Shown here is a 120-nucleotide RNA from Fructilactobacillus sanfranciscensis, a member of the family "Ribosomal protein L10 leader". A reference for the family is Zengel and Lindahl (1994), "Diverse mechanisms for regulating ribosomal protein synthesis in Escherichia coli", Prog Nucleic Acid Res Mol Biol. It scores 68 bits against the family's covariance model. Rfam's curators write: This family is a putative r-protein leader autoregulatory structure found in B. subtilis and other low-GC Gram-positive bacteria.
RNA sequence: UUAGUAUAAUAUGAUUCGCCUAAGACUCAGGUGGCUUUUAAAGCCUUAAUUAAUGCCUGCCGAGGAGUUUAACGACUUUUCUCUAUGUUUUGGCGAACAUAGGGAUUUUUUUAUAGGUUC
Numbered sequence: 001u002u003a004g005u006a007u008a009a010u011a012u013g014a015u016u017c018g019c020c021u022a023a024g025a026c027u028c029a030g031g032u033g034g035c036u037u038u039u040a041a042a043g044c045c046u047u048a049a050u051u052a053a054u055g056c057c058u059g060c061c062g063a064g065g066a067g068u069u070u071a072a073c074g075a076c077u078u079u080u081c082u083c084u085a086u087g088u089u090u091u092g093g094c095g096a097a098c099a100u101a102g103g104g105a106u107u108u109u110u111u112u113a114u115a116g117g118u119u120c
Stems, first nucleotide, its partner, number of pairs: 028059005033045003080105010